The record is a 75-nucleotide RNA from Trichinella spiralis, which matches "mir-9/mir-79 microRNA precursor family" in Rfam. Its family is annotated with miRNA-mediated post-transcriptional gene silencing and RISC complex in the Gene Ontology. The literature on the family includes a 2001 paper in Science by Lagos-Quintana et al., "Identification of novel genes coding for small expressed RNAs". The organism belongs to Trichinella, within Eukaryota.
RNA sequence: AACGCUCUUUCUUUGGUCAUUUAGCUGUAUGAUUGUUAUGAAAUUCAUAAGCUAGUUGACCAAAGAAAGAGCGAC
Numbered sequence: 001a002a003c004g005c006u007c008u009u010u011c012u013u014u015g016g017u018c019a020u021u022u023a024g025c026u027g028u029a030u031g032a033u034u035g036u037u038a039u040g041a042a043a044u045u046c047a048u049a050a051g052c053u054a055g056u057u058g059a060c061c062a063a064a065g066a067a068a069g070a071g072c073g074a075c
Stems, first nucleotide, its partner, number of pairs: 003073003007069013021055006028049005